RNA sequence: CAGUCAUCAGUUACAGUGAUAACUAUGGUUA
Numbered sequence: 001c002a003g004u005c006a007u008c009a010g011u012u013a014c015a016g017u018g019a020u021a022a023c024u025a026u027g028g029u030u031a
Base pairs, nucleotide, nucleotide: 002030003029004028005027006026007025009024010023011022012021013020014018
The family of this 31-nucleotide RNA sequence from Leptidea sinapis is "Iron response element II". IRE, TFRC, SLC40A1, SDHB, SLC11A2, CDC42BPA, ACO2, ALAS2_H.SAPIENS, CDC14A, EPAS1, ALAS2, qoxD, Hao1, NDUFS1, transferrin, Aconitate. A reference for the family is Dandekar et al. (1991), "Identification of a novel iron-responsive element in murine and human erythroid delta-aminolevulinic acid synthase mRNA", EMBO J. Gene Ontology term of the family: response to iron ion. By type it is a cis-regulatory element. NCBI's taxonomy places the organism under Eukaryota, Insecta, Amphiesmenoptera, Glossata, Leptidea. The match comes from Rfam's covariance-model search (34 bits).